[Rfam]
Mammalian CPEB3 ribozyme: an 81-nucleotide sequence from Eptatretus burgeri. The base pairs follow the family's consensus structure, which is taken from published work.
RNA sequence: GUUUCAUCCUAUGGGGUUAAAGCAGAAGUGCUCAGGUUAUGACCCCUGUCAGGCUAAUUAUAUUACCCUGCAAAUGCUGCU
Number, nucleotide and partner (000 for none) at each position: 001g000002u000003u000004u000005c000006a000007u000008c000009c000010u000011a000012u000013g046014g045015g044016g043017u042018u041019a000020a000021a081022g080023c079024a078025g077026a000027a075028g040029u039030g038031c000032u000033c000034a000035g000036g000037u000038u030039a029040u028041g018042a017043c016044c015045c014046c013047u000048g000049u000050c070051a069052g068053g067054c000055u065056a064057a000058u000059u000060a000061u000062a000063u000064u056065a055066c000067c053068c052069u051070g050071c000072a000073a000074a000075u027076g000077c025078u024079g023080c022081u021